[Rfam]
RNA: T-box leader
Organism: Intestinibaculum porci
RNA sequence: AGUAACACAACGAUAAGGACUAGUACAUAACAGAAAGUAUCAGAGAGGAAGAGAAGGGUGUGAAUCUUCUUGCGGCAUGUUAUGGAAUUCACCUUGGAGUGCGGUUAAUCCCCGCCGUAGAACUACGUUACAGUGAAUUAAGGGCAUAGAGAUUCUCUAUGAAUUAGGAUGGUACCGCGAUUAUGUCGUUCCUAAA
Numbered sequence: 001a002g003u004a005a006c007a008c009a010a011c012g013a014u015a016a017g018g019a020c021u022a023g024u025a026c027a028u029a030a031c032a033g034a035a036a037g038u039a040u041c042a043g044a045g046a047g048g049a050a051g052a053g054a055a056g057g058g059u060g061u062g063a064a065u066c067u068u069c070u071u072g073c074g075g076c077a078u079g080u081u082a083u084g085g086a087a088u089u090c091a092c093c094u095u096g097g098a099g100u101g102c103g104g105u106u107a108a109u110c111c112c113c114g115c116c117g118u119a120g121a122a123c124u125a126c127g128u129u130a131c132a133g134u135g136a137a138u139u140a141a142g143g144g145c146a147u148a149g150a151g152a153u154u155c156u157c158u159a160u161g162a163a164u165u166a167g168g169a170u171g172g173u174a175c176c177g178c179g180a181u182u183a184u185g186u187c188g189u190u191c192c193u194a195a196a
Stems, first nucleotide, its partner, number of pairs: 007100002015095004026084006037073003047070006102114003116127003145161007166193004177189005